[Rfam]
RNA sequence: UGUGAAGUGUUAGACUAACCCCGUCACGUCCUGGAACAACGUUUAACUGACUUACAUCCUGUAGC
Numbered sequence: 001u002g003u004g005a006a007g008u009g010u011u012a013g014a015c016u017a018a019c020c021c022c023g024u025c026a027c028g029u030c031c032u033g034g035a036a037c038a039a040c041g042u043u044u045a046a047c048u049g050a051c052u053u054a055c056a057u058c059c060u061g062u063a064g065c
Stems, first nucleotide, its partner, number of pairs: 009047007023037002027033001052064004
RNA: Bacillaceae-1 RNA